The family of this 76-nucleotide RNA sequence from Upupa epops is "Small nucleolar RNA SNORD69".
[Rfam]
RNA sequence: UACACAAAGCACAUGAUGAGAAAGCACUAAACUGAUAUGUGUGAAGUCCAUUCAAUCCAAUACUGAGCUUUGUGUC
Numbered sequence: 001u002a003c004a005c006a007a008a009g010c011a012c013a014u015g016a017u018g019a020g021a022a023a024g025c026a027c028u029a030a031a032c033u034g035a036u037a038u039g040u041g042u043g044a045a046g047u048c049c050a051u052u053c054a055a056u057c058c059a060a061u062a063c064u065g066a067g068c069u070u071u072g073u074g075u076c
Stems, first nucleotide, its partner, number of pairs: 002075009
Its family is annotated with RNA processing and nucleolus in the Gene Ontology. Rfam describes the family as follows. snoRNA HBII-210 belongs to the C/D family of snoRNAs. It is the human orthologue of the mouse MBII-210 and is predicted to guide the 2'O-ribose methylation of large 28S rRNA on residue G4464. The source organism's lineage runs through Eukaryota, Gnathostomata, Archosauria, Aves and Upupa. A search with the family's covariance model found it, with a score of 47 bits.